[Rfam]
RNA sequence: AUUUCAUCAAGAGUGGUGGAGGGACAGGCCCGAUGAAACCCGGCAACCUGCGCAAGGACGCAUGGUGCCAAAUCCUGCAGAAUCGCUGAUUCUGAGAGAUGAAAC
Number, nucleotide and partner (000 for none) at each position: 001a000002u104003u103004u102005c101006a100007u099008c098009a000010a000011g000012a000013g041014u000015g040016g039017u038018g000019g000020a000021g031022g030023g029024a000025c077026a076027g075028g074029c023030c022031c021032g000033a000034u000035g000036a000037a000038a017039c016040c015041c013042g069043g068044c067045a066046a000047c065048c064049u062050g061051c060052g059053c000054a000055a000056g000057g000058a000059c052060g051061c050062a049063u000064g048065g047066u045067g044068c043069c042070a000071a000072a000073u097074c028075c027076u026077g025078c094079a093080g092081a091082a090083u089084c000085g000086c000087u000088g000089a083090u082091u081092c080093u079094g078095a000096g000097a073098g008099a007100u006101g005102a004103a003104a002105c000
Description: Shown here is a 105-nucleotide sequence from Brevibacillus borstelensis, a member of the family "SAM riboswitch aptamer (S box leader)". It scores 93 bits against the family's covariance model.